This 242-nucleotide RNA sequence from Medicago truncatula belongs to the Rfam family "MIR2655 microRNA precursor family". Gene Ontology terms of the family: RISC complex and miRNA-mediated post-transcriptional gene silencing.

[Rfam]
RNA sequence: GGCUUAAAUGCCAUUUUGGUCCUUUAAGUAUUUAUUUGGUAUCGCUUUGGUCCCUUAACUAAAAAAAAGAUUGUUUGAGUACUUUAAUUUAAUUUUCGUUACAUUUUUUGGUCCAUUCCGUUAGGUUUAAUAAAAAAUGUUAAGUGUGAUACACGUGUCGUUUUGGCAUUGGCUCUGGAAACAUUAAGGGACCAAAGUGAUACCAAAUAAAUACUUACGGGACCAAAAGAGCAUUUAAGUUU
Numbered sequence: 001g002g003c004u005u006a007a008a009u010g011c012c013a014u015u016u017u018g019g020u021c022c023u024u025u026a027a028g029u030a031u032u033u034a035u036u037u038g039g040u041a042u043c044g045c046u047u048u049g050g051u052c053c054c055u056u057a058a059c060u061a062a063a064a065a066a067a068a069g070a071u072u073g074u075u076u077g078a079g080u081a082c083u084u085u086a087a088u089u090u091a092a093u094u095u096u097c098g099u100u101a102c103a104u105u106u107u108u109u110g111g112u113c114c115a116u117u118c119c120g121u122u123a124g125g126u127u128u129a130a131u132a133a134a135a136a137a138u139g140u141u142a143a144g145u146g147u148g149a150u151a152c153a154c155g156u157g158u159c160g161u162u163u164u165g166g167c168a169u170u171g172g173c174u175c176u177g178g179a180a181a182c183a184u185u186a187a188g189g190g191a192c193c194a195a196a197g198u199g200a201u202a203c204c205a206a207a208u209a210a211a212u213a214c215u216u217a218c219g220g221g222a223c224c225a226a227a228a229g230a231g232c233a234u235u236u237a238a239g240u241u242u
Stems, first nucleotide, its partner, number of pairs: 014228003018224003022220002025217010036206006